[Rfam]
The family of this 67-nucleotide RNA is "S15-Flavobacteria ribosomal protein leader".
RNA sequence: UAUCUUUGCCGCCUUGAUCAUGAAGUAUCAAGUACAUAAAAAUUAUUAAAAAAUUAAUGUUAGCAUG
Numbered sequence: 001u002a003u004c005u006u007u008g009c010c011g012c013c014u015u016g017a018u019c020a021u022g023a024a025g026u027a028u029c030a031a032g033u034a035c036a037u038a039a040a041a042a043u044u045a046u047u048a049a050a051a052a053a054u055u056a057a058u059g060u061u062a063g064c065a066u067g
Base pairs, nucleotide, nucleotide: 014031015030016029017028018027

Rfam's curators put it in the seed alignment. Clan: Ribosomal Protein S15 Leader clan. The literature on the family includes a 2020 paper in BMC Microbiol by Eckert and Weinberg, "Discovery of 20 novel ribosomal leader candidates in bacteria and archaea". The base pairs follow the family's consensus structure, which is taken from published work.